[Rfam]
RNA sequence: UUUCACCAGUGUGUGGAUGGCGUUCAGUAUCAAGGACGGGUGUUUUCACCAGUGUGUCGAUGGCGUUCAGCACCAAGGACGGGUGUUUUCACCA
Numbered sequence: 001u002u003u004c005a006c007c008a009g010u011g012u013g014u015g016g017a018u019g020g021c022g023u024u025c026a027g028u029a030u031c032a033a034g035g036a037c038g039g040g041u042g043u044u045u046u047c048a049c050c051a052g053u054g055u056g057u058c059g060a061u062g063g064c065g066u067u068c069a070g071c072a073c074c075a076a077g078g079a080c081g082g083g084u085g086u087u088u089u090c091a092c093c094a
Base pairs, nucleotide, nucleotide: 004085005084006083007082009080010079018075019074020073022071023070024069026067027066028065030063031062032061034055036053037052039050040049041048042047